[Rfam]
RNA sequence: AAGUCUCUCAGGUUCUGGCUGGCCCUCGGAUGAAUGCCAGAAUCCUUCAAGCCGCGCCUAGCGCGGCUUUUUUUA
Number, nucleotide and partner (000 for none) at each position: 001a000002a000003g000004u000005c000006u000007c000008u000009c000010a000011g044012g043013u042014u041015c040016u039017g038018g037019c036020u000021g000022g000023c029024c028025c000026u000027c000028g024029g023030a000031u000032g000033a000034a000035u000036g019037c018038c017039a016040g015041a014042a013043u012044c011045c000046u000047u000048c000049a000050a068051g067052c066053c065054g064055c063056g062057c061058c000059u000060a000061g057062c056063g055064c054065g053066g052067c051068u050069u000070u000071u000072u000073u000074u000075a000